The family of this 105-nucleotide RNA sequence from Medicago truncatula is "MIR1507 microRNA precursor family".
[Rfam]
RNA sequence: CGAUGUUGGGUAGAGUUAUAUGGAAUGAAAGAUGUGAAUUUCUUUUUAGAUUCUAUUCAUUCAAUUUUCUCUCUUUUUUUCCAUACAUCAUCUAACCAACAAACU
Numbered sequence: 001c002g003a004u005g006u007u008g009g010g011u012a013g014a015g016u017u018a019u020a021u022g023g024a025a026u027g028a029a030a031g032a033u034g035u036g037a038a039u040u041u042c043u044u045u046u047u048a049g050a051u052u053c054u055a056u057u058c059a060u061u062c063a064a065u066u067u068u069c070u071c072u073c074u075u076u077u078u079u080u081c082c083a084u085a086c087a088u089c090a091u092c093u094a095a096c097c098a099a100c101a102a103a104c105u
Stems, first nucleotide, its partner, number of pairs: 005100005011094004015089001017087001019085007027077006034071001036069003049057003
The organism belongs to Medicago, within Eukaryota.